[Rfam]
RNA sequence: GGUACAAUAAAGGGUGGAUGUUAUAUAAGUUUGCGAUUGGGCAAGCGUUUCUACCAACUACCGCAAAGAGUUGGCUAUAACGACCAGGGCCUGCCCC
Numbered sequence: 001g002g003u004a005c006a007a008u009a010a011a012g013g014g015u016g017g018a019u020g021u022u023a024u025a026u027a028a029g030u031u032u033g034c035g036a037u038u039g040g041g042c043a044a045g046c047g048u049u050u051c052u053a054c055c056a057a058c059u060a061c062c063g064c065a066a067a068g069a070g071u072u073g074g075c076u077a078u079a080a081c082g083a084c085c086a087g088g089g090c091c092u093g094c095c096c097c
Stems, first nucleotide, its partner, number of pairs: 019082007029046006055073005

The record is a 97-nucleotide RNA from Faecalibacterium gallinarum, which matches "Purine riboswitch aptamer" in Rfam. The match comes from Rfam's covariance-model search (45 bits). Its family is annotated with purine nucleobase biosynthetic process in the Gene Ontology. Taxonomically the source falls in Faecalibacterium (Bacteria, Bacillati, Eubacteriales, Oscillospiraceae).